Shown here is an 89-nucleotide RNA from Streptomyces showdoensis, a member of the family "ZMP/ZTP riboswitch aptamer (pfl RNA motif)". Pairs were carried over by alignment from the consensus structure, which is taken from published work. The source organism's lineage runs through Bacteria, Bacillati, Kitasatosporales, Streptomycetaceae and Streptomyces.
[Rfam]
RNA sequence: AACACGCACGGCGACUGGCGUACGGGGAAGCGACCCCGGGGGAGCCGCGCGGCAGACCACACGAGGUGCCGCCCGCCUGGGCAUCACGG
Numbered sequence: 001a002a003c004a005c006g007c008a009c010g011g012c013g014a015c016u017g018g019c020g021u022a023c024g025g026g027g028a029a030g031c032g033a034c035c036c037c038g039g040g041g042g043a044g045c046c047g048c049g050c051g052g053c054a055g056a057c058c059a060c061a062c063g064a065g066g067u068g069c070c071g072c073c074c075g076c077c078u079g080g081g082c083a084u085c086a087c088g089g
Base pairs, nucleotide, nucleotide: 005051006050007049009047010046011045012044015041016040017077018076019075020074024037025036026035027034066084067083068082069081070080